Record summary:
A member of the RNA family "Archaeal large subunit ribosomal RNA" from uncultured crenarchaeote 4B7, 453 nucleotides of a longer RNA. Rfam's curators put it in the seed alignment. Lineage of the source: Archaea > Thermoproteati > Nitrososphaerota > Nitrososphaeria > Nitrosopumilales.
RNA sequence: CCAACCGAAGCGUCUCGUAGGGCGUCCUUAGUGGAGAUAGCGUUUCCUGUAGAGCACUGAUAAGGGAGUAUGGGGAAGAAAUUCCUCGCUCCCCAUUCAAACUCCGAAGGGAUAUGCAUUGUAGAAGCUAGGAGACGGGUUCGUGUGACGUAAGGUUCACGACCGAGAGGGGUUUAACCCAGACCGAAGUUAAGGUCCCUAAAUUUUUUCUAAGUGUCAAGCUAAAGUGUGUGUUCGCGCCAAGACAGCAGGGAGGUAAGCUCAGAAGCAGCUAUCCUUUAAAAAGUGUGUAACAACUUACCUGCCGAGCGUGGGCGCCACAAAAACGGACGGGGCUAAAGAAAAGUACCGAUACUUUGGAUACAUGCCAAUGGGCAUGUCAUGGUAGGUUGAGCGUAGUGAUUGGGUCGAAGCAGGGCGGUGACGUCCUGUGGACCAUUUUCUAUUGCAGAU
Numbered sequence: 001c002c003a004a005c006c007g008a009a010g011c012g013u014c015u016c017g018u019a020g021g022g023c024g025u026c027c028u029u030a031g032u033g034g035a036g037a038u039a040g041c042g043u044u045u046c047c048u049g050u051a052g053a054g055c056a057c058u059g060a061u062a063a064g065g066g067a068g069u070a071u072g073g074g075g076a077a078g079a080a081a082u083u084c085c086u087c088g089c090u091c092c093c094c095a096u097u098c099a100a101a102c103u104c105c106g107a108a109g110g111g112a113u114a115u116g117c118a119u120u121g122u123a124g125a126a127g128c129u130a131g132g133a134g135a136c137g138g139g140u141u142c143g144u145g146u147g148a149c150g151u152a153a154g155g156u157u158c159a160c161g162a163c164c165g166a167g168a169g170g171g172g173u174u175u176a177a178c179c180c181a182g183a184c185c186g187a188a189g190u191u192a193a194g195g196u197c198c199c200u201a202a203a204u205u206u207u208u209u210c211u212a213a214g215u216g217u218c219a220a221g222c223u224a225a226a227g228u229g230u231g232u233g234u235u236c237g238c239g240c241c242a243a244g245a246c247a248g249c250a251g252g253g254a255g256g257u258a259a260g261c262u263c264a265g266a267a268g269c270a271g272c273u274a275u276c277c278u279u280u281a282a283a284a285a286g287u288g289u290g291u292a293a294c295a296a297c298u299u300a301c302c303u304g305c306c307g308a309g310c311g312u313g314g315g316c317g318c319c320a321c322a323a324a325a326a327c328g329g330a331c332g333g334g335g336c337u338a339a340a341g342a343a344a345a346g347u348a349c350c351g352a353u354a355c356u357u358u359g360g361a362u363a364c365a366u367g368c369c370a371a372u373g374g375g376c377a378u379g380u381c382a383u384g385g386u387a388g389g390u391u392g393a394g395c396g397u398a399g400u401g402a403u404u405g406g407g408u409c410g411a412a413g414c415a416g417g418g419c420g421g422u423g424a425c426g427u428c429c430u431g432u433g434g435a436c437c438a439u440u441u442u443c444u445a446u447u448g449c450a451g452a453u
Base pairs, nucleotide, nucleotide: 001394002392003391004390005389006388011024012023013022014021015020026134027132028131029130030129031128032127036120037119038118040117041116042115043114045112046111047110052105053103054102059098060097064093065092066091067090068089072087073086074085075084076083077082138164139163141162142161143160144159145158147157148156169180170179171178184360185359186358187357188356189355190354194350195349196348203347205346206345207344208343209342210341227321228320229319231318232317233316234315235314236313237312238311239310240309248305249304250303251302252301254278255277256276259273260272261271279283284299288297289296361383362382363380364379365378366377367376395448397445398444399443401441402440404438405437406436413432414431415430416429417428418427419426420425
Pairs were carried over by alignment from the consensus structure, which is taken from published work.